[Rfam]
RNA: small nucleolar RNA snoR117
Organism: Musa acuminata
RNA sequence: GGCCGAUGAUGCGAUAGUAUUGUCCGUACCAUCUGAGAUCCGGUGAUGCCGCCGCCUCUCUGAUGCUAUAUCUUUCUUCUGAGGCCG
Number, nucleotide and partner (000 for none) at each position: 001g086002g085003c084004c083005g000006a000007u000008g000009a000010u000011g000012c000013g000014a000015u000016a000017g000018u000019a000020u000021u000022g000023u000024c000025c000026g000027u000028a000029c000030c000031a000032u000033c000034u000035g000036a000037g000038a000039u000040c000041c000042g000043g000044u000045g000046a000047u000048g000049c000050c000051g000052c000053c000054g000055c000056c000057u000058c000059u000060c000061u000062g000063a000064u000065g000066c000067u000068a000069u000070a000071u000072c000073u000074u000075u000076c000077u000078u000079c000080u000081g000082a000083g004084g003085c002086c001087g000